[Rfam]
RNA: Small nucleolar RNA R44/J54/Z268 family
Organism: Sorghum bicolor
RNA sequence: UUGGCAGAUGAUGAAAAGCAAAGACAAUUGCAUCUGCAGUGCUCCUGGUUCAUGGAGGCACAAUGGCAUGAUGACUAUGUCUAGGGGAAUCUCUGAUGCUAA
Numbered sequence: 001u002u003g004g005c006a007g008a009u010g011a012u013g014a015a016a017a018g019c020a021a022a023g024a025c026a027a028u029u030g031c032a033u034c035u036g037c038a039g040u041g042c043u044c045c046u047g048g049u050u051c052a053u054g055g056a057g058g059c060a061c062a063a064u065g066g067c068a069u070g071a072u073g074a075c076u077a078u079g080u081c082u083a084g085g086g087g088a089a090u091c092u093c094u095g096a097u098g099c100u101a102a
Stems, first nucleotide, its partner, number of pairs: 002101005